Shown here is a 343-nucleotide RNA sequence from Seongchinamella unica, a member of the family "Bacterial RNase P class A". From the family's description: Ribonuclease P (RNase P) is a ubiquitous endoribonuclease, found in archaea, bacteria and eukarya as well as chloroplasts and mitochondria. Its best characterised activity is the generation of mature 5'-ends of tRNAs by cleaving the 5'-leader elements of precursor-tRNAs. The source organism's lineage runs through Bacteria, Pseudomonadati, Pseudomonadota, Halieaceae and Seongchinamella.
RNA sequence: CGAGUCGGUCAGGCGAUCGCUCUCCACCUGGUGGAGGGAGGAAAGUCCGGGCUCCACAGGGCAGGGUGCCAGGUAACGCCUGGGGGGCGAAAGCCCACGGAAAGUGCAACAGAAAGUAUACCGCCUGCCUCGGCAGGUAAGGGUGAAAUGGUGCGGUAAGAGCGCACCGCGCGGCUGGUAACAGGCGCGGCGAUGGUAAACCCCACCCGGAGCAAGACCAAAUAGGAAUCCUUCAGCCGUGGCCCGCGGUGGAUUCGGGUAGGUCGCUUCAGGCAACCGGCGACGGUUGUCGCAGAUGAAUGGUCGCCCACGACAGAACCCGGCUUAUCGACCGGCUCACUGA
Numbered sequence: 001c002g003a004g005u006c007g008g009u010c011a012g013g014c015g016a017u018c019g020c021u022c023u024c025c026a027c028c029u030g031g032u033g034g035a036g037g038g039a040g041g042a043a044a045g046u047c048c049g050g051g052c053u054c055c056a057c058a059g060g061g062c063a064g065g066g067u068g069c070c071a072g073g074u075a076a077c078g079c080c081u082g083g084g085g086g087g088c089g090a091a092a093g094c095c096c097a098c099g100g101a102a103a104g105u106g107c108a109a110c111a112g113a114a115a116g117u118a119u120a121c122c123g124c125c126u127g128c129c130u131c132g133g134c135a136g137g138u139a140a141g142g143g144u145g146a147a148a149u150g151g152u153g154c155g156g157u158a159a160g161a162g163c164g165c166a167c168c169g170c171g172c173g174g175c176u177g178g179u180a181a182c183a184g185g186c187g188c189g190g191c192g193a194u195g196g197u198a199a200a201c202c203c204c205a206c207c208c209g210g211a212g213c214a215a216g217a218c219c220a221a222a223u224a225g226g227a228a229u230c231c232u233u234c235a236g237c238c239g240u241g242g243c244c245c246g247c248g249g250u251g252g253a254u255u256c257g258g259g260u261a262g263g264u265c266g267c268u269u270c271a272g273g274c275a276a277c278c279g280g281c282g283a284c285g286g287u288u289g290u291c292g293c294a295g296a297u298g299a300a301u302g303g304u305c306g307c308c309c310a311c312g313a314c315a316g317a318a319c320c321c322g323g324c325u326u327a328u329c330g331a332c333c334g335g336c337u338c339a340c341u342g343a
Stems, first nucleotide, its partner, number of pairs: 002338009011328001012308007020038008043326003047323005052212004059245004064208005069083005084098001085096004099203002104201002106197002121142002123138006150168006169191001170189004175184003216265004226256006236250005272291008